RNA sequence: CUCGUCCGAGGGGACGCGAGGAUCGCGCUCGUCGCCACUGCAGUCGGUCGGUCGCCCGGCCCGGCCCGGCCCUGACAAGCUGCCGGAGGGCAAGCUCCUCGGAGCCCAUCCCGGAGUCCUGUGACCGCCGCCGCCGCCGGCCGGUUCCUCCCGCGUCUGAGCCGCCGAGGGGCUGCGCGCCUCCGGACGUGCCUCUCCUCCUCUCCCCCGCGUGCGGAGAGAGAGCGAGCUUAGGCCGGAGCGAGCUCGGGGGGACGCUGGCCGUGAAGGCAUCGCGGCCACCGAUUCGCCAUG
Numbered sequence: 001c002u003c004g005u006c007c008g009a010g011g012g013g014a015c016g017c018g019a020g021g022a023u024c025g026c027g028c029u030c031g032u033c034g035c036c037a038c039u040g041c042a043g044u045c046g047g048u049c050g051g052u053c054g055c056c057c058g059g060c061c062c063g064g065c066c067c068g069g070c071c072c073u074g075a076c077a078a079g080c081u082g083c084c085g086g087a088g089g090g091c092a093a094g095c096u097c098c099u100c101g102g103a104g105c106c107c108a109u110c111c112c113g114g115a116g117u118c119c120u121g122u123g124a125c126c127g128c129c130g131c132c133g134c135c136g137c138c139g140g141c142c143g144g145u146u147c148c149u150c151c152c153g154c155g156u157c158u159g160a161g162c163c164g165c166c167g168a169g170g171g172g173c174u175g176c177g178c179g180c181c182u183c184c185g186g187a188c189g190u191g192c193c194u195c196u197c198c199u200c201c202u203c204u205c206c207c208c209c210g211c212g213u214g215c216g217g218a219g220a221g222a223g224a225g226c227g228a229g230c231u232u233a234g235g236c237c238g239g240a241g242c243g244a245g246c247u248c249g250g251g252g253g254g255a256c257g258c259u260g261g262c263c264g265u266g267a268a269g270g271c272a273u274c275g276c277g278g279c280c281a282c283c284g285a286u287u288c289g290c291c292a293u294g
Stems, first nucleotide, its partner, number of pairs: 001013003016032005034070003094163001096161001138159003142155001193223004202218003237261001239259001241258003

Rfam assigns this 294-nucleotide RNA sequence from Pipistrellus kuhlii to the family "HIF-1 alpha IRES". The family's RNA type in Rfam is internal ribosome entry site. About the family: This family represents the hypoxia-inducible factor 1-alpha internal ribosome entry site. HIF-1a is a subunit of the HIF-1 transcription factor, which induces transcription of several genes involved in the cellular response to hypoxia. The HIF-1a IRES allows translation to be maintained under hypoxic cell conditions that inhibit cap-dependent translation. Gene Ontology term of the family: ribosome binding. Lineage of the source: Eukaryota > Bilateria > Deuterostomia > Vertebrata > Pipistrellus.